[Rfam]
RNA sequence: CAGCGUUCUCAGGGCGGGGUGAAAUUCCCCACCGGCGGUAGCCGCAGGAUUCGUCCCGCGGAAGCCCGCGAGCGCCCGGCAGCCGCGUCAAAGCGGCUAUCGGGGUCAGCAGAUCUGGUGCGAUGCCAGGGCCGACGGUCACAGUCCGGAUGAAAGAGAAACGCGA
Numbered sequence: 001c002a003g004c005g006u007u008c009u010c011a012g013g014g015c016g017g018g019g020u021g022a023a024a025u026u027c028c029c030c031a032c033c034g035g036c037g038g039u040a041g042c043c044g045c046a047g048g049a050u051u052c053g054u055c056c057c058g059c060g061g062a063a064g065c066c067c068g069c070g071a072g073c074g075c076c077c078g079g080c081a082g083c084c085g086c087g088u089c090a091a092a093g094c095g096g097c098u099a100u101c102g103g104g105g106u107c108a109g110c111a112g113a114u115c116u117g118g119u120g121c122g123a124u125g126c127c128a129g130g131g132c133c134g135a136c137g138g139u140c141a142c143a144g145u146c147c148g149g150a151u152g153a154a155a156g157a158g159a160a161a162c163g164c165g166a
Stems, first nucleotide, its partner, number of pairs: 003164004007159004017029003031145002033134002035069004064132002072110002114130005136148003
RNA: FMN riboswitch aptamer (RFN element)
Organism: Roseateles toxinivorans